[Rfam]
RNA sequence: AACAGGAAUGCUGAAAACUGUAUAGAGUAGGCA
Number, nucleotide and partner (000 for none) at each position: 001a000002a021003c020004a019005g018006g000007a000008a000009u000010g032011c031012u030013g000014a000015a000016a000017a000018c005019u004020g003021u002022a000023u000024a000025g000026a000027g000028u000029a000030g012031g011032c010033a000